[Rfam]
The family of this 75-nucleotide RNA sequence is "Flavo-1 RNA".
RNA sequence: CUGCGUUAGGGAUUGGAACGGCAUCCUUUUUUUUGCAUUUCAAAAAAAAAGAUAUAGUGAAAAGCCCGACCCCUU
Numbered sequence: 001c002u003g004c005g006u007u008a009g010g011g012a013u014u015g016g017a018a019c020g021g022c023a024u025c026c027u028u029u030u031u032u033u034u035g036c037a038u039u040u041c042a043a044a045a046a047a048a049a050a051g052a053u054a055u056a057g058u059g060a061a062a063a064g065c066c067c068g069a070c071c072c073c074u075u
Stems, first nucleotide, its partner, number of pairs: 009067003013063002018058002023053003028048008
Dot-bracket structure: ........(((.((...((...(((..((((((((.....))))))))..)))...))...)).)))........

Rfam classes the family as a small RNA.